[Rfam]
The record is a 158-nucleotide RNA sequence from Medicago truncatula, which matches "MIR2619 microRNA precursor family" in Rfam.
RNA sequence: AAACAGUCCCCUAUGUUUUGAUUCUUUAGCAGUUUUGGACCCCCAAGGCAAAAAAAAAAAAAUUUGACAAGUGGCACCUCACUUAGGGUGCCACGUCAGCGUUGACCGAGUCAACAAUGGAUUGGGGGUCCAAAAAAUCAAAACAUAGGGGGCUGUUU
Numbered sequence: 001a002a003a004c005a006g007u008c009c010c011c012u013a014u015g016u017u018u019u020g021a022u023u024c025u026u027u028a029g030c031a032g033u034u035u036u037g038g039a040c041c042c043c044c045a046a047g048g049c050a051a052a053a054a055a056a057a058a059a060a061a062a063u064u065u066g067a068c069a070a071g072u073g074g075c076a077c078c079u080c081a082c083u084u085a086g087g088g089u090g091c092c093a094c095g096u097c098a099g100c101g102u103u104g105a106c107c108g109a110g111u112c113a114a115c116a117a118u119g120g121a122u123u124g125g126g127g128g129u130c131c132a133a134a135a136a137a138u139c140a141a142a143a144c145a146u147a148g149g150g151g152g153c154u155g156u157u158u
Stems, first nucleotide, its partner, number of pairs: 001158002004155005012147012033135013069096001072093007